A member of the RNA family "Glycine riboswitch aptamer" from Agromyces albus, 107 nucleotides long. The organism belongs to Agromyces, within Bacteria. The match comes from Rfam's covariance-model search (59 bits). This family represents the bacterial glycine riboswitch. Glycine riboswitches usually consist of two metabolite-binding aptamers domains with similar structures in tandem. The pairing is the family consensus, mapped onto this sequence. Gene Ontology term of the family: glycine biosynthetic process.
RNA sequence: CGACGCAUCGCGGGAGAGCCGGGCAGUUCUGCACCAGCAGGCGCUGACCGGCACCGAAGGAGCAAGCCUCCCCGCCAAUCUCUCAGGUCGCACACCGCGAUGAACAG
Numbered sequence: 001c002g003a004c005g006c007a008u009c010g011c012g013g014g015a016g017a018g019c020c021g022g023g024c025a026g027u028u029c030u031g032c033a034c035c036a037g038c039a040g041g042c043g044c045u046g047a048c049c050g051g052c053a054c055c056g057a058a059g060g061a062g063c064a065a066g067c068c069u070c071c072c073c074g075c076c077a078a079u080c081u082c083u084c085a086g087g088u089c090g091c092a093c094a095c096c097g098c099g100a101u102g103a104a105c106a107g
Stems, first nucleotide, its partner, number of pairs: 006102008019051004053088003056084002060082003066075002